Vault RNA: an 80-nucleotide RNA from Argiope bruennichi. The organism belongs to Argiope, within Eukaryota. Pairs were carried over by alignment from the consensus structure, which is taken from published work. On this family, see Stadler et al., Mol Biol Evol 2009: "Evolution of Vault RNAs". From the family's description: This family of RNAs are found as part of the enigmatic vault ribonucleoprotein complex. The complex consists of a major vault protein (MVP), two minor vault proteins (VPARP and TEP1), and several small untranslated RNA molecules. It has been suggested that the vault complex is involved in drug resistance.
RNA sequence: UUGCAGGCUUUGUCAUGUGGUUACUUCGAUAGUAUUUGCAGAACUCGUACCUUUGACCACCGACGCUGUCCUGCUUUUUG
Number, nucleotide and partner (000 for none) at each position: 001u000002u000003g074004c073005a072006g071007g070008c000009u000010u000011u000012g064013u063014c062015a000016u000017g060018u059019g058020g057021u000022u000023a000024c000025u000026u056027c055028g054029a053030u000031a000032g000033u000034a000035u000036u000037u000038g000039c000040a000041g000042a000043a000044c000045u000046c000047g000048u000049a000050c000051c000052u000053u029054u028055g027056a026057c020058c019059a018060c017061c000062g014063a013064c012065g000066c000067u000068g000069u000070c007071c006072u005073g004074c003075u000076u000077u000078u000079u000080g000